[Rfam]
RNA sequence: ACAAGGUACAGAGCUUAGCUGACUGGGGAACAGUGUUUGUUUUCCUCUUUGUUCACAGUGGCUAAGUUCUGUAUCUGAA
Numbered sequence: 001a002c003a004a005g006g007u008a009c010a011g012a013g014c015u016u017a018g019c020u021g022a023c024u025g026g027g028g029a030a031c032a033g034u035g036u037u038u039g040u041u042u043u044c045c046u047c048u049u050u051g052u053u054c055a056c057a058g059u060g061g062c063u064a065a066g067u068u069c070u071g072u073a074u075c076u077g078a079a
Stems, first nucleotide, its partner, number of pairs: 011069010026056001028054005

The family of this 79-nucleotide RNA sequence from Charadrius vociferus is "mir-27 microRNA precursor family". A reference for the family is Chen et al. (2005), "The developmental miRNA profiles of zebrafish as determined by small RNA cloning", Genes Dev. Its family is annotated with RISC complex and miRNA-mediated post-transcriptional gene silencing in the Gene Ontology.